RNA sequence: GGCAGGUUUGCGCGGGAACACUGGAAGGUCACCCCUAAGGUGGCAGCGCCCAACGGGCGUCUCCCUUCCACCCGGGACCUGCUAUUUU
Numbered sequence: 001g002g003c004a005g006g007u008u009u010g011c012g013c014g015g016g017a018a019c020a021c022u023g024g025a026a027g028g029u030c031a032c033c034c035c036u037a038a039g040g041u042g043g044c045a046g047c048g049c050c051c052a053a054c055g056g057g058c059g060u061c062u063c064c065c066u067u068c069c070a071c072c073c074g075g076g077a078c079c080u081g082c083u084a085u086u087u088u
Stems, first nucleotide, its partner, number of pairs: 001083007011075001013074004022070006028044006047059004

DUF3800-VII RNA: an 88-nucleotide RNA.